[Rfam]
RNA sequence: AAAGCGGGUGAGAACCCUUUGAAUCAAGUAUUGUGGUGAUUCAAAAAGGGUUCUCAUAAACG
Numbered sequence: 001a002a003a004g005c006g007g008g009u010g011a012g013a014a015c016c017c018u019u020u021g022a023a024u025c026a027a028g029u030a031u032u033g034u035g036g037u038g039a040u041u042c043a044a045a046a047a048g049g050g051u052u053c054u055c056a057u058a059a060a061c062g
Stems, first nucleotide, its partner, number of pairs: 008057013021032002